Rfam assigns this 89-nucleotide sequence from Drosophila albomicans to the family "mir-316 microRNA precursor family".
Nucleotides: 089
Stems, first nucleotide, its partner, number of pairs: 008081003012077002017072001019070001021068005028062003032057003036053004
Number, partner (000 for none) and nucleotide at each position: 001000a002000a003000g004000u005000u006000c007000u008081a009080g010079u011000c012077g013076a014000u015000u016000u017072g018000u019070c020000u021068u022067u023066u024065u025064c026000c027000g028062c029061u030060u031000a032057c033056u034055g035000c036053c037052g038051u039050u040000u041000u042000u043000a044000u045000u046000g047000a048000g049000c050039g051038a052037c053036g054000a055034c056033a057032g058000g059000a060030a061029a062028g063000g064025g065024a066023a067022a068021a069000c070019g071000g072017c073000g074000u075000a076013u077012u078000u079010a080009c081008u082000a083000a084000g085000a086000a087000u088000u089000u

For this family Rfam cites "Systematic discovery and characterization of fly microRNAs using 12 Drosophila genomes" (Stark et al., Genome Res, 2007).
The organism belongs to Drosophila, within Eukaryota.
Pairs were carried over by alignment from the consensus structure, which was predicted with RNAalifold.
Its family is annotated with RISC complex and miRNA-mediated post-transcriptional gene silencing in the Gene Ontology.